[Rfam]
RNA sequence: CCUGGGGCUGACGCCCCAGGCUAAGUGCUGCCGCCACUUCGUGGCU
Numbered sequence: 001c002c003u004g005g006g007g008c009u010g011a012c013g014c015c016c017c018a019g020g021c022u023a024a025g026u027g028c029u030g031c032c033g034c035c036a037c038u039u040c041g042u043g044g045c046u
Stems, first nucleotide, its partner, number of pairs: 001020008033045005

Rfam assigns this 46-nucleotide RNA from Rubripirellula obstinata to the family "Acido-Lenti-1 RNA". Pairs were carried over by alignment from the consensus structure, which is taken from published work. The organism belongs to Rubripirellula, within Bacteria.